The record is a 91-nucleotide RNA sequence from Salinisphaera sp. Q1T1-3, which matches "t44 RNA" in Rfam.
[Rfam]
RNA sequence: CGUCAUAUAUUUCAAUUACACACGCACUUCGACACAUGAAGCUGGGUGCCCGUUUCGACGGGUUGCUUCAUGGGAUGUGCGGAGGCUCAAC
Dot-bracket structure: ......................(((((.((....((((((((.....(((((......))))).)))))))).)).)))))..........
Numbered sequence: 001c002g003u004c005a006u007a008u009a010u011u012u013c014a015a016u017u018a019c020a021c022a023c024g025c026a027c028u029u030c031g032a033c034a035c036a037u038g039a040a041g042c043u044g045g046g047u048g049c050c051c052g053u054u055u056c057g058a059c060g061g062g063u064u065g066c067u068u069c070a071u072g073g074g075a076u077g078u079g080c081g082g083a084g085g086c087u088c089a090a091c
Stems, first nucleotide, its partner, number of pairs: 023081005029075002035072008048063005
Annotation:
By type it is a small RNA. Rfam's curators write: This family consists of a number of bacterial RNA genes of between 135 and 170 bases in length. The t44 gene has been identified in several species of enteric bacteria but homologs have also been identified in Pseudomonas and Coxiella species. The t44 gene is found between the map and rpsB genes in all species in the full alignment apart from Shigella flexneri. On this family, see Tjaden et al., Nucleic Acids Res 2002: "Transcriptome analysis of Escherichia coli using high-density oligonucleotide probe arrays".